[Rfam]
RNA sequence: AAGGCUGUGCUUUCAGGGAUCAUUUCUCUAGUUGGUGACUGGAGAAGGGUGGUUGUGACAGCUUGGCCUUGCUAACCACAAUGAAGAGCUGUAGUGUUUCUUUCUGAGCAUGACAAUGGUUGAGAGUGCUGUUCUGUGGCAGCUGCUUUCUGCUGUGGAAGAGUGUCUUGCCCUUCCUGAGAAGAGCAGGGGAAAGAAACACAGUCUGAGUGGU
Numbered sequence: 001a002a003g004g005c006u007g008u009g010c011u012u013u014c015a016g017g018g019a020u021c022a023u024u025u026c027u028c029u030a031g032u033u034g035g036u037g038a039c040u041g042g043a044g045a046a047g048g049g050u051g052g053u054u055g056u057g058a059c060a061g062c063u064u065g066g067c068c069u070u071g072c073u074a075a076c077c078a079c080a081a082u083g084a085a086g087a088g089c090u091g092u093a094g095u096g097u098u099u100c101u102u103u104c105u106g107a108g109c110a111u112g113a114c115a116a117u118g119g120u121u122g123a124g125a126g127u128g129c130u131g132u133u134c135u136g137u138g139g140c141a142g143c144u145g146c147u148u149u150c151u152g153c154u155g156u157g158g159a160a161g162a163g164u165g166u167c168u169u170g171c172c173c174u175u176c177c178u179g180a181g182a183a184g185a186g187c188a189g190g191g192g193a194a195a196g197a198a199a200c201a202c203a204g205u206c207u208g209a210g211u212g213g214u
Base pairs, nucleotide, nucleotide: 002040003039005037006035009032010031011030015027016026017025018024049064051062053061054060075214076213077212078211079210094202095201096200097199098198099197100196101195102194103193104192105191108166109165110164118154119153120152124148125147126146127145128143129142130141131140132139169188170187171186173184174183175182176181
Small nucleolar RNA U3: a 214-nucleotide RNA sequence from Mauremys mutica. The family is grouped with related families in Rfam's "U3 clan". Rfam describes the family as follows. Small nucleolar RNAs (snoRNAs) are involved in the processing and modification of rRNA in the nucleolus. It scores 122 bits against the family's covariance model. Pairs were carried over by alignment from the consensus structure, which is taken from published work. The literature on the family includes a 1999 paper in Mol Cell Biol by Speckmann et al., "Nuclear retention elements of U3 small nucleolar RNA".